[Rfam]
RNA sequence: UUGCACAUUCAAGUCCUAUUAUGUCUUGAAUGAUCGACAUGGAGGGGUAGAUUAAUUCUCUCAAAAACCUGAAGUAUUGGCUUAACAUUCCUUGCUUUGGAUCCUGUCGGGAGAAACAACU
Numbered sequence: 001u002u003g004c005a006c007a008u009u010c011a012a013g014u015c016c017u018a019u020u021a022u023g024u025c026u027u028g029a030a031u032g033a034u035c036g037a038c039a040u041g042g043a044g045g046g047g048u049a050g051a052u053u054a055a056u057u058c059u060c061u062c063a064a065a066a067a068c069c070u071g072a073a074g075u076a077u078u079g080g081c082u083u084a085a086c087a088u089u090c091c092u093u094g095c096u097u098u099g100g101a102u103c104c105u106g107u108c109g110g111g112a113g114a115a116a117c118a119a120c121u
Stems, first nucleotide, its partner, number of pairs: 002049003006045001008043003013038003017033001019030001056115001058113005069100007079091002
Small nucleolar RNA SNORA26: a 121-nucleotide RNA sequence from Carassius auratus.
The source organism's lineage runs through Eukaryota, Deuterostomia, Craniata, Neopterygii and Carassius.
The family's RNA type in Rfam is H/ACA-box small nucleolar RNA.
Rfam 15.1 lists 1,943 matches to the family in 640 species.
Its family is annotated with RNA processing and nucleolus in the Gene Ontology.
The snoRNA HBI-6 belong to the H/ACA family of snoRNAs, guiding the pseudouridylation of position U4522 if the 28S rRNA. HBI-6 is the human orthologue of mouse MBI-6 snoRNA.